[Rfam]
RNA sequence: AGGCGAUGAAGUGAGAGGGUGUGCCGGUAUGCAUUGUCUCACAGAGCUUUCGGGAGGGGUUGUGCAGUGAAACCUCAAACCGGCGUAGGUUAUAUAGCUGAAAGAAAAUGCUCAGA
Number, nucleotide and partner (000 for none) at each position: 001a049002g048003g047004c046005g000006a000007u000008g000009a000010a000011g042012u041013g040014a039015g038016a037017g000018g035019g034020u033021g032022u031023g000024c083025c082026g081027g080028u000029a000030u000031g022032c021033a020034u019035u018036g000037u016038c015039u014040c013041a012042c011043a000044g000045a000046g004047c003048u002049u001050u000051c000052g000053g000054g000055a000056g000057g000058g000059g000060u000061u000062g000063u000064g111065c110066a109067g000068u000069g000070a000071a000072a000073c000074c000075u000076c000077a000078a000079a000080c027081c026082g025083g024084c000085g000086u000087a000088g099089g098090u097091u096092a000093u000094a000095u000096a091097g090098c089099u088100g000101a000102a000103a000104g000105a000106a000107a000108a000109u066110g065111c064112u000113c000114a000115g000116a000
The record is a 116-nucleotide RNA, which matches "drum RNA" in Rfam. Rfam's curators write: Firmicutes, Bacteroidetes (1 example), Proteobacteria (2 examples), Spirochaetes (2 examples).